[Rfam]
RNA sequence: UAAGCUUAGCUGGUUGAAUCCGGGUCAAAUAUUAAGUACGUUUAAAGCAUUUGGUCCCCUUCAACCAGCUUUAGUUG
Dot-bracket structure: ..(....(((((((((((...((.((((((..................))))))))...)))))))))))....)..